RNA sequence: AGCAUAUUCAACUGUAAGUUGCUUUGGAUAAAAGCAUCAGCUAAAUGACUGUAC
Numbered sequence: 001a002g003c004a005u006a007u008u009c010a011a012c013u014g015u016a017a018g019u020u021g022c023u024u025u026g027g028a029u030a031a032a033a034g035c036a037u038c039a040g041c042u043a044a045a046u047g048a049c050u051g052u053a054c
Base pairs, nucleotide, nucleotide: 013043014041015040020036021035022034023033024032025031
The record is a 54-nucleotide RNA from Albula goreensis, which matches "UnaL2 LINE 3' element" in Rfam. Pairs were carried over by alignment from the consensus structure, which is taken from published work. About the family: The eel long interspersed element (LINE) UnaL2 and its partner short interspersed element (SINE) share a conserved 3' tail containing a stem-loop that is critical for their retrotransposition. Presumably, the first step of retrotransposition is the recognition of their 3' tails by UnaL2-encoded reverse transcriptase. The solution structure of a 17-nucleotide RNA derived from the 3' tail of UnaL2 was determined by NMR. The organism belongs to Albula, within Eukaryota.